[Rfam]
RNA sequence: AACAGAAAAGGGGAGGCAGGUCUGUGUCUCCUGCGUUCGGAGGAACAUUGAGAUAUAGCAAAAAAAUCAAUGGCCAAGAUAUCGUUUCGUUCGUCAUCUUUUUUUAUUGGUGAUUCGAUUGUUGCUCGUCCACAU
Numbered sequence: 001a002a003c004a005g006a007a008a009a010g011g012g013g014a015g016g017c018a019g020g021u022c023u024g025u026g027u028c029u030c031c032u033g034c035g036u037u038c039g040g041a042g043g044a045a046c047a048u049u050g051a052g053a054u055a056u057a058g059c060a061a062a063a064a065a066a067u068c069a070a071u072g073g074c075c076a077a078g079a080u081a082u083c084g085u086u087u088c089g090u091u092c093g094u095c096a097u098c099u100u101u102u103u104u105u106a107u108u109g110g111u112g113a114u115u116c117g118a119u120u121g122u123u124g125c126u127c128g129u130c131c132a133c134a135u
Stems, first nucleotide, its partner, number of pairs: 007037002010034001013030006072131002075128001077126002081119004091113006
Small nucleolar RNA snoR111: a 135-nucleotide sequence from Carya illinoinensis. The literature on the family includes a 2002 paper in Curr Biol by Marker et al., "Experimental RNomics: identification of 140 candidates for small non-messenger RNAs in the plant Arabidopsis thaliana". Taxonomically the source falls in Carya (Eukaryota, Streptophytina, Gunneridae, Fagales). Its family is annotated with RNA processing and nucleolus in the Gene Ontology. Pairs were carried over by alignment from the consensus structure, which was predicted with WAR. It scores 70 bits against the family's covariance model.